Overview:
The family of this 71-nucleotide RNA sequence from Pararhodobacter aggregans is "Singlet oxygen resistance RNA X". Rfam 15.1 lists 528 matches to the family in 356 species. The match comes from Rfam's covariance-model search (80 bits). From the family's description: SorX (RSs2461)like SorY is a singlet oxygen induced sRNA that counteracts oxidative stress by targeting mRNA for a transporter in Rhodobacter. It also has an impact on resistance against organic hydroperoxides. It targets SD sequence of potA mRNA via an aSD sequence. The aSD sequence and some neighbouring nucleotides are identical to the one of SorY (targets takP mRNA). The organism belongs to Pararhodobacter, within Bacteria. On this family, see Peng et al., RNA Biol 2016: "Regulation of a polyamine transporter by the conserved 3' UTR-derived sRNA SorX confers resistance to singlet oxygen and organic hydroperoxides in Rhodobacter sphaeroides".
RNA sequence: CUCCCCUGCGUGUCGGGGUCAUGACACGCUCCUCCCUGUUGGACUGGCCCGGGCUUUGCCCGGGCCUUUUU
Numbered sequence: 001c002u003c004c005c006c007u008g009c010g011u012g013u014c015g016g017g018g019u020c021a022u023g024a025c026a027c028g029c030u031c032c033u034c035c036c037u038g039u040u041g042g043a044c045u046g047g048c049c050c051g052g053g054c055u056u057u058g059c060c061c062g063g064g065c066c067u068u069u070u071u
Stems, first nucleotide, its partner, number of pairs: 008029007047065008